[Rfam]
RNA sequence: CUUUCUUCAACAAACACGGGUCUGUGUCCAGCGAUCCUCUUCCCGUCCGCGGGUUAGAGUUGAUUACUGCGACAGCUCGAUCACCAAAGGAGCCAUCAAAUUCUCAUGAUGUCAAUCUUCCGAUCGACAGAUCCAAGAGAGACCGGUCUUUGGGAAGCCAUGUUCGCUUCGGCUUGAGCGUGGUGGAACAUUGUACUGGGGACGUCAUAUUCCUACCCCUUCAUCCGAGAUCGUCGAUCAAUGAGGUUAGGGAAAACCAUGACUUGCCCAAAUAU
Numbered sequence: 001c002u003u004u005c006u007u008c009a010a011c012a013a014a015c016a017c018g019g020g021u022c023u024g025u026g027u028c029c030a031g032c033g034a035u036c037c038u039c040u041u042c043c044c045g046u047c048c049g050c051g052g053g054u055u056a057g058a059g060u061u062g063a064u065u066a067c068u069g070c071g072a073c074a075g076c077u078c079g080a081u082c083a084c085c086a087a088a089g090g091a092g093c094c095a096u097c098a099a100a101u102u103c104u105c106a107u108g109a110u111g112u113c114a115a116u117c118u119u120c121c122g123a124u125c126g127a128c129a130g131a132u133c134c135a136a137g138a139g140a141g142a143c144c145g146g147u148c149u150u151u152g153g154g155a156a157g158c159c160a161u162g163u164u165c166g167c168u169u170c171g172g173c174u175u176g177a178g179c180g181u182g183g184u185g186g187a188a189c190a191u192u193g194u195a196c197u198g199g200g201g202a203c204g205u206c207a208u209a210u211u212c213c214u215a216c217c218c219c220u221u222c223a224u225c226c227g228a229g230a231u232c233g234u235c236g237a238u239c240a241a242u243g244a245g246g247u248u249a250g251g252g253a254a255a256a257c258c259a260u261g262a263c264u265u266g267c268c269c270a271a272a273u274a275u
Stems, first nucleotide, its partner, number of pairs: 018134008026073003029069003033065004037059004042053004081126001083124001085122001089113002092110001094108001146196002152189001157184009166173002201268001203266001204263005217252004223247003229239004
RNA: A. fumigatus sRNA Afu_309